[Rfam]
RNA sequence: ACCGCGUACUUGCCUACUAUAGGACUGUAGUAGACGAAAUACAUGUAUCUCCGCUACUAUAUAGAAGGCAAGUACGCGGUUU
Number, nucleotide and partner (000 for none) at each position: 001a080002c079003c078004g077005c076006g075007u074008a073009c072010u071011u070012g069013c068014c067015u066016a000017c064018u063019a062020u061021a060022g000023g000024a000025c000026u000027g000028u059029a058030g057031u056032a055033g054034a000035c000036g051037a050038a000039a048040u047041a046042c000043a000044u000045g000046u041047a040048u039049c000050u037051c036052c000053g000054c033055u032056a031057c030058u029059a028060u021061a020062u019063a018064g017065a000066a015067g014068g013069c012070a011071a010072g009073u008074a007075c006076g005077c004078g003079g002080u001081u000082u000
mir-7563 microRNA precursor family: an 82-nucleotide sequence from Ictalurus punctatus.
Its family is annotated with RISC complex and miRNA-mediated post-transcriptional gene silencing in the Gene Ontology.